[Rfam]
RNA sequence: GGUCAUGAGUCCCAGUAACAAGCCCCGGCUUACUGGGCGGCAACCCUCCAACCGCGGUGGGGUGCCCCGGGUGAAGACCUGGCCCUUGGGCUCACAAGGCGGCUAAGGACAAGCGCGGGUA
Numbered sequence: 001g002g003u004c005a006u007g008a009g010u011c012c013c014a015g016u017a018a019c020a021a022g023c024c025c026c027g028g029c030u031u032a033c034u035g036g037g038c039g040g041c042a043a044c045c046c047u048c049c050a051a052c053c054g055c056g057g058u059g060g061g062g063u064g065c066c067c068c069g070g071g072u073g074a075a076g077a078c079c080u081g082g083c084c085c086u087u088g089g090g091c092u093c094a095c096a097a098g099g100c101g102g103c104u105a106a107g108g109a110c111a112a113g114c115g116c117g118g119g120u121a
Stems, first nucleotide, its partner, number of pairs: 001079004009038001011037006021030002039066003044062003048057002082110001084108006091101001

This 121-nucleotide RNA from Arthrobacter sp. NIO-1057 belongs to the Rfam family "SAM (S-adenosyl methionine) riboswitch aptamer". The match comes from Rfam's covariance-model search (108 bits). Rfam links the family to the GO terms S-adenosylmethionine metabolic process and regulation of gene expression. SAM-IV is a mRNA element that regulates gene expression via direct sensing of S-adenosylmethionine (SAM or AdoMet). On this family, see Weinberg et al., RNA 2008: "The aptamer core of SAM-IV riboswitches mimics the ligand-binding site of SAM-I riboswitches".